[Rfam]
RNA sequence: UCGCACUAGUCGGGGAGAUAGCGGUGCCCUGUACCUGCAAUCCGCUACAGCAGGGAUGAAUUCCCACACCCGGGCAAGUUUGAAUAUUGUCUGACCUGCGCAAGUGGUGUUGAUAGAUUGGUCUUGCGCAACGAGAUCCCGUGAACCAUGUCAGGUGGGGAACCAAGCAGCAUUAAGCGGAUCUUCUCGUGUGCCGCGGGGUUGCCGUUCUUGAGCUAACUGUGUCAGGUUCGGGUAUUCGCCUUGUUCAAAUGUGGGUGUGCGA
Number, nucleotide and partner (000 for none) at each position: 001u265002c264003g263004c262005a261006c260007u000008a000009g057010u056011c055012g030013g029014g028015g027016a000017g025018a000019u023020a000021g000022c000023g019024g000025u017026g000027c015028c014029c013030u012031g000032u000033a000034c054035c053036u052037g051038c050039a000040a000041u000042c000043c000044g000045c000046u000047a000048c000049a000050g038051c037052a036053g035054g034055g011056a010057u009058g000059a000060a000061u000062u000063c258064c257065c256066a255067c254068a253069c000070c000071c000072g249073g248074g247075c246076a245077a000078g000079u000080u000081u241082g240083a239084a238085u237086a236087u235088u234089g000090u000091c000092u233093g232094a000095c000096c228097u227098g226099c224100g223101c222102a000103a000104g220105u219106g217107g216108u215109g000110u000111u000112g000113a000114u000115a211116g210117a209118u000119u207120g206121g205122u204123c200124u199125u198126g197127c196128g195129c191130a190131a000132c189133g188134a187135g186136a185137u000138c000139c180140c179141g178142u177143g000144a000145a000146c000147c000148a173149u172150g171151u170152c000153a000154g000155g000156u165157g164158g163159g000160g000161a000162a000163c158164c157165a156166a000167g000168c000169a000170g151171c150172a149173u148174u000175a000176a000177g142178c141179g140180g139181a000182u000183c000184u000185u136186c135187u134188c133189g132190u130191g129192u000193g000194c000195c128196g127197c126198g125199g124200g123201g000202u000203u000204g122205c121206c120207g119208u000209u117210c116211u115212u000213g000214a000215g108216c107217u106218a000219a105220c104221u000222g101223u100224g099225u000226c098227a097228g096229g000230u000231u000232c093233g092234g088235g087236u086237a085238u084239u083240c082241g081242c000243c000244u000245u076246g075247u074248u073249c072250a000251a000252a000253u068254g067255u066256g065257g064258g063259u000260g006261u005262g004263c003264g002265a001
RNA: Bacterial large signal recognition particle RNA
Organism: Firmicutes bacterium CAG:110